RNA sequence: AUCGAACAGCCAAUGAGCGGAGACGACGCAAUGUUUCUGGACAAUGUGGUGGUGGCAGGUGUCGUGACCGUUGGCCUGAUGGUCGUCUUCUUCGCAGGCUUCGGACUGUUUAUCUGGAAGGACUCGCACAAGCGCAAGUAAGGCACAGGCCUUCUACAGCAAGAGCACGCAAGGCAUUUAGGGCAACUUCGGUUGCCCAUUUUUUUU
Numbered sequence: 001a002u003c004g005a006a007c008a009g010c011c012a013a014u015g016a017g018c019g020g021a022g023a024c025g026a027c028g029c030a031a032u033g034u035u036u037c038u039g040g041a042c043a044a045u046g047u048g049g050u051g052g053u054g055g056c057a058g059g060u061g062u063c064g065u066g067a068c069c070g071u072u073g074g075c076c077u078g079a080u081g082g083u084c085g086u087c088u089u090c091u092u093c094g095c096a097g098g099c100u101u102c103g104g105a106c107u108g109u110u111u112a113u114c115u116g117g118a119a120g121g122a123c124u125c126g127c128a129c130a131a132g133c134g135c136a137a138g139u140a141a142g143g144c145a146c147a148g149g150c151c152u153u154c155u156a157c158a159g160c161a162a163g164a165g166c167a168c169g170c171a172a173g174g175c176a177u178u179u180a181g182g183g184c185a186a187c188u189u190c191g192g193u194u195g196c197c198c199a200u201u202u203u204u205u206u207u
Stems, first nucleotide, its partner, number of pairs: 007097001009095002046056002073084004165175002168173001181198007

Shown here is a 207-nucleotide RNA from Pseudomonas sp. v388, a member of the family "PhrS". The family's consensus secondary structure was predicted with CMfinder.